Rfam assigns this 144-nucleotide RNA sequence from Gadus morhua to the family "Small nucleolar RNA SNORA79".
Lineage of the source: Eukaryota > Eurypterygia > Ctenosquamata > Gadariae > Gadus.
By type it is an H/ACA-box small nucleolar RNA.
For this family Rfam cites "A computational screen for mammalian pseudouridylation guide H/ACA RNAs" (Schattner et al., RNA, 2006).
The base pairs follow the family's consensus structure, which was predicted with RNAalifold.
Nucleotides: 144
Base pairs, nucleotide, nucleotide: 001055002054003053004052005051006050007049008048014042015041016040018038020035021034022033023032069136070135071134072133073132074131081124082123083122084121085120086119087118088117090116094112095111098109099108
Number, partner (000 for none) and nucleotide at each position: 001055u002054g003053a004052c005051g006050u007049c008048a009000g010000u011000u012000c013000c014042u015041c016040c017000u018038c019000c020035u021034g022033c023032u024000c025000u026000c027000a028000g029000u030000u031000c032023a033022g034021c035020a036000g037000u038018g039000u040016g041015g042014a043000u044000u045000u046000u047000a048008u049007g050006a051005u052004g053003u054002c055001a056000c057000a058000g059000a060000a061000u062000g063000a064000a065000c066000c067000a068000g069136g070135g071134u072133c073132u074131a075000u076000u077000u078000c079000a080000c081124c082123c083122a084121g085120g086119a087118g088117a089000u090116g091000u092000u093000a094112g095111g096000g097000c098109g099108g100000c101000a102000a103000c104000g105000c106000u107000u108099c109098u110000a111095c112094u113000g114000u115000a116090c117088u118087c119086u120085c121084c122083u123082g124081g125000u126000u127000u128000u129000g130000c131074u132073g133072g134071a135070c136069c137000c138000c139000a140000c141000a142000a143000a144000u